RNA sequence: AUCUUAUCAAGAGAGACUGAGGGAUUCGGACCGAAGACGUCUCAGCAACCAGCUCCAAAUGGAGUCAGGUGCUACAUCCUACGGACGUAAUCGUCCGAGAGAUAAGAA
Dot-bracket structure: .(((((((....(((((...((...[.[[.))......)))))((((.((.((((......))))..))))))...(]].]((((((....))))))..)))))))).

Shown here is a 108-nucleotide sequence from Geomicrobium sp. JCM 19038, a member of the family "SAM riboswitch aptamer (S box leader)". The family's consensus secondary structure is taken from published work. The match comes from Rfam's covariance-model search (78 bits).